[Rfam]
RNA: mir-27 microRNA precursor family
RNA sequence: AGCAGGUGCAGGGCUUCGCUGAUUGGUGAACAGUCAUGGCUUCUCUCUGUGUUCACAGUGGCUAAGUCCUGCGCUUGAA
Numbered sequence: 001a002g003c004a005g006g007u008g009c010a011g012g013g014c015u016u017c018g019c020u021g022a023u024u025g026g027u028g029a030a031c032a033g034u035c036a037u038g039g040c041u042u043c044u045c046u047c048u049g050u051g052u053u054c055a056c057a058g059u060g061g062c063u064a065a066g067u068c069c070u071g072c073g074c075u076u077g078a079a
Stems, first nucleotide, its partner, number of pairs: 011069006018062003026056007